[Rfam]
RNA sequence: CUAAAGGGUAGAGGUUGCAUCGUCUAAGAGUCACAAACCGUAGGGUGAUACCGAUGAGGGUUUGUAAAAGGAGCCGAUGCCGAAGUAAGAAGCGGUUUAUCACACCCUCUUGCUGGGGUUGUCACCAAACAGGGGCAACACUGCCAUAGUAUAUAUUUAAAGAUUAUUAACUAUGGAGCGCUACUGUGGAG
Number, nucleotide and partner (000 for none) at each position: 001c000002u000003a000004a000005a000006g000007g185008g184009u183010a182011g181012a000013g000014g000015u000016u000017g080018c079019a078020u077021c076022g075023u000024c073025u072026a000027a000028g000029a000030g000031u000032c000033a065034c064035a063036a062037a061038c060039c059040g000041u000042a000043g000044g000045g000046u000047g000048a000049u000050a000051c000052c000053g000054a000055u000056g000057a000058g000059g039060g038061u037062u036063u035064g034065u033066a000067a000068a000069a000070g000071g000072a025073g024074c000075c022076g021077a020078u019079g018080c017081c000082g000083a000084a114085g113086u112087a111088a110089g109090a108091a000092g106093c000094g000095g103096u000097u000098u000099a000100u000101c000102a000103c095104a000105c000106c092107c000108u090109c089110u088111u087112g086113c085114u084115g142116g141117g000118g139119u138120u137121g136122u135123c134124a000125c132126c000127a000128a000129a000130c000131a000132g125133g000134g123135g122136c121137a120138a119139c118140a000141c116142u115143g000144c176145c175146a174147u173148a172149g171150u170151a000152u000153a000154u000155a000156u000157u000158u000159a000160a000161a000162g000163a000164u000165u000166a000167u000168u000169a000170a150171c149172u148173a147174u146175g145176g144177a000178g000179c000180g000181c011182u010183a009184c008185u007186g000187u000188g000189g000190a000191g000

This 191-nucleotide RNA from Photobacterium aphoticum belongs to the Rfam family "Lysine riboswitch aptamer". The base pairs follow the family's consensus structure, which is taken from published work. The organism belongs to Photobacterium, within Bacteria.